[Rfam]
RNA sequence: ACGCGUCUUCAGGGCGGGGCGGAAUUCCCCACCGGCGGUAGGCGAAGGAGCGGCACCCCGCCGCAGGUCUUCGCGAGCCCGCGAGCGCCCACCGCCUUGCGCGGCGGGGUCAGCAGAUCUGGCCACACACCAGAGCCGACGGUCACAGUCCGGAUGAAAGAAGAUGCGC
Numbered sequence: 001a002c003g004c005g006u007c008u009u010c011a012g013g014g015c016g017g018g019g020c021g022g023a024a025u026u027c028c029c030c031a032c033c034g035g036c037g038g039u040a041g042g043c044g045a046a047g048g049a050g051c052g053g054c055a056c057c058c059c060g061c062c063g064c065a066g067g068u069c070u071u072c073g074c075g076a077g078c079c080c081g082c083g084a085g086c087g088c089c090c091a092c093c094g095c096c097u098u099g100c101g102c103g104g105c106g107g108g109g110u111c112a113g114c115a116g117a118u119c120u121g122g123c124c125a126c127a128c129a130c131c132a133g134a135g136c137c138g139a140c141g142g143u144c145a146c147a148g149u150c151c152g153g154a155u156g157a158a159a160g161a162a163g164a165u166g167c168g169c
Stems, first nucleotide, its partner, number of pairs: 003167008017029003031149002033138002035082004085114002118134005140152003
FMN riboswitch aptamer (RFN element): a 169-nucleotide RNA from Melaminivora alkalimesophila. Rfam links the family to the GO term FMN binding. On this family, see Vitreschak et al., Nucleic Acids Res 2002: "Regulation of riboflavin biosynthesis and transport genes in bacteria by transcriptional and translational attenuation". It scores 85 bits against the family's covariance model.